[Rfam]
RNA sequence: UUGAGGUUGAUGAAGGAAAUACUUGGAUUCCCAUUAACUUUCAAAAUUAACCCAUUAAAUCUAUUAUUGGCUCAA
Numbered sequence: 001u002u003g004a005g006g007u008u009g010a011u012g013a014a015g016g017a018a019a020u021a022c023u024u025g026g027a028u029u030c031c032c033a034u035u036a037a038c039u040u041u042c043a044a045a046a047u048u049a050a051c052c053c054a055u056u057a058a059a060u061c062u063a064u065u066a067u068u069g070g071c072u073c074a075a
Base pairs, nucleotide, nucleotide: 001075002074003073004072005071
Small nucleolar RNA R12: a 75-nucleotide RNA from Ceratopteris richardii. The family's RNA type in Rfam is C/D-box small nucleolar RNA. From the family's description: snoR12 is a C/D box small nucleolar RNA, which acts as a methylation guide for 25S ribosomal RNA in plants. snoR12 has been alternatively named snoZ44 in Arabidopsis and snoZ131 in rice. Pairs were carried over by alignment from the consensus structure, which was predicted with PFOLD. Taxonomically the source falls in Ceratopteris (Eukaryota, Tracheophyta, Polypodiidae, Polypodiales).